[Rfam]
RNA: c-di-AMP riboswitch aptamer (ydaO/yuaA leader)
RNA sequence: CGGGGAGACACGCUCAAUUCCCCUUCAGGGAAGCCGGGGACCCGCCGGUGGCGACCGCCAUCACGGGGUGAAUCCGAGUUUUUCGGUAGGGCUGCUCCGGCCCGAACCCGUCAGCUAACCCGGUAGGCGUCUAUGAGAGGAGCA
Number, nucleotide and partner (000 for none) at each position: 001c000002g000003g000004g000005g000006a000007g000008a000009c000010a000011c129012g128013c127014u126015c000016a000017a000018u032019u031020c030021c000022c000023c000024u000025u000026c000027a000028g000029g000030g020031a019032a018033g124034c123035c122036g121037g120038g119039g000040a000041c000042c000043c065044g064045c000046c000047g000048g000049u000050g000051g000052c000053g000054a000055c000056c000057g000058c000059c000060a000061u000062c000063a000064c044065g043066g109067g108068g107069u000070g000071a000072a000073u000074c086075c085076g084077a083078g000079u000080u000081u000082u000083u077084c076085g075086g074087u000088a000089g103090g102091g101092c100093u000094g000095c000096u000097c000098c000099g000100g092101c091102c090103c089104g000105a000106a000107c068108c067109c066110g000111u000112c000113a000114g000115c000116u000117a000118a000119c038120c037121c036122g035123g034124u033125a000126g014127g013128c012129g011130u000131c000132u000133a000134u000135g000136a000137g000138a000139g000140g000141a000142g000143c000144a000